[Rfam]
RNA sequence: GGACGGGCAUUGCUUUGUGGUUACUUCGAAUAUUUCACUGAAUAAUUACUGCUCAAGCAAUUGUUGGUUUCAACCCAAACCACUGGCGCUCUCCUGACCCUUU
Dot-bracket structure: .(.((((....(((..((((....((.((.......................................)).))......)))).))).....)))).).....
The record is a 103-nucleotide sequence from Adineta steineri, which matches "Vault RNA" in Rfam.
A search with the family's covariance model found it, with a score of 43 bits.
The base pairs follow the family's consensus structure, which is taken from published work.
The source organism's lineage runs through Eukaryota, Eumetazoa, Bilateria, Adinetidae and Adineta.